RNA sequence: UUGCCUAUGGGAUGAAGGCAGUCCCUUACAUCUGAUAACCAUCCUCUUCACUUUGUCUGCUAAAACCUCCAGUUUUUAGCUGAUCAUUAACGGAUGGGACAUUU
Numbered sequence: 001u002u003g004c005c006u007a008u009g010g011g012a013u014g015a016a017g018g019c020a021g022u023c024c025c026u027u028a029c030a031u032c033u034g035a036u037a038a039c040c041a042u043c044c045u046c047u048u049c050a051c052u053u054u055g056u057c058u059g060c061u062a063a064a065a066c067c068u069c070c071a072g073u074u075u076u077u078a079g080c081u082g083a084u085c086a087u088u089a090a091c092g093g094a095u096g097g098g099a100c101a102u103u104u
Base pairs, nucleotide, nucleotide: 039097040096041095042094043093055084056083057082059080060079061078062077

This 104-nucleotide RNA sequence from Aegilops tauschii belongs to the Rfam family "Small nucleolar RNA snoR99". On this family, see Marker et al., Curr Biol 2002: "Experimental RNomics: identification of 140 candidates for small non-messenger RNAs in the plant Arabidopsis thaliana". The organism belongs to Aegilops tauschii, within Eukaryota. The family's RNA type in Rfam is H/ACA-box small nucleolar RNA.